A member of the RNA family "Ruegeria cis52 sRNA" from Roseovarius tolerans, 179 nucleotides long. The family's consensus secondary structure was predicted with RNAfold. A search with the family's covariance model found it, with a score of 165 bits.

[Rfam]
RNA sequence: UCCUGAGCGCGUGUUUCAUCACGAUAUUGGGGAAACUUACCCCCUUGAGCCGGGCCGUGCGGAUAUAUUGCGCGGUCAUCACCUCGGCCAUCGAGGCGCGGGUCAUUCGUGCGAUGUAUCCCAUCCCGUAGAGCGCGAUGGUAAGCACCGGCAGAAAGAAAUUCUCGAAGGUCGGGUUC
Numbered sequence: 001u002c003c004u005g006a007g008c009g010c011g012u013g014u015u016u017c018a019u020c021a022c023g024a025u026a027u028u029g030g031g032g033a034a035a036c037u038u039a040c041c042c043c044c045u046u047g048a049g050c051c052g053g054g055c056c057g058u059g060c061g062g063a064u065a066u067a068u069u070g071c072g073c074g075g076u077c078a079u080c081a082c083c084u085c086g087g088c089c090a091u092c093g094a095g096g097c098g099c100g101g102g103u104c105a106u107u108c109g110u111g112c113g114a115u116g117u118a119u120c121c122c123a124u125c126c127c128g129u130a131g132a133g134c135g136c137g138a139u140g141g142u143a144a145g146c147a148c149c150g151g152c153a154g155a156a157a158g159a160a161a162u163u164c165u166c167g168a169a170g171g172u173c174g175g176g177u178u179c
Base pairs, nucleotide, nucleotide: 004141006139008137009136010135011134012133014131015130016128021124028123029122030121031120038113040111042109046105047104048103050101051100052099054097055075056074057073058072059071060070061069062068082096083095084094085093086092145179147177148175149174150173151172152171154165156163157162